A member of the RNA family "Fluoride riboswitch aptamer (crcB RNA motif)" from Sphingomonas paeninsulae, 71 nucleotides long. Gene Ontology terms of the family: response to fluoride and positive regulation of gene expression.
RNA sequence: GCGCAUCGAGGCGAUGGAUUUCCGCCUGGCUUUGGCCGAACCGCCCUCGGGCUGAUGAUUCCUACCUGCUG
Numbered sequence: 001g002c003g004c005a006u007c008g009a010g011g012c013g014a015u016g017g018a019u020u021u022c023c024g025c026c027u028g029g030c031u032u033u034g035g036c037c038g039a040a041c042c043g044c045c046c047u048c049g050g051g052c053u054g055a056u057g058a059u060u061c062c063u064a065c066c067u068g069c070u071g
Stems, first nucleotide, its partner, number of pairs: 010026004016062003020058002043052003
Dot-bracket structure: .........((((..[[[.[[.))))................(((....)))....]].]]].........